[Rfam]
RNA: tRNA
Organism: Rhodohalobacter sp. SW132
RNA sequence: GUCGUGGUAGCUCAGGUGGUUAGAGCGUCGGAUUCAUAACCCGGAGGUCGGCGGUUCAAGUCCGCCCCACGAUA
Numbered sequence: 001g002u003c004g005u006g007g008u009a010g011c012u013c014a015g016g017u018g019g020u021u022a023g024a025g026c027g028u029c030g031g032a033u034u035c036a037u038a039a040c041c042c043g044g045a046g047g048u049c050g051g052c053g054g055u056u057c058a059a060g061u062c063c064g065c066c067c068c069a070c071g072a073u074a
Stems, first nucleotide, its partner, number of pairs: 001073007010026004028044004050066005